[Rfam]
RNA sequence: CCAGGGGCUUGCGCCCCUGGCUAACGAUUGCCGCACCUCCGGUGCU
Numbered sequence: 001c002c003a004g005g006g007g008c009u010u011g012c013g014c015c016c017c018u019g020g021c022u023a024a025c026g027a028u029u030g031c032c033g034c035a036c037c038u039c040c041g042g043u044g045c046u
Stems, first nucleotide, its partner, number of pairs: 001020008033045005

Overview
Rfam assigns this 46-nucleotide RNA from Limnoglobus roseus to the family "Acido-Lenti-1 RNA". The family's RNA type in Rfam is small RNA. The match comes from Rfam's covariance-model search (44 bits). The family's consensus secondary structure is taken from published work.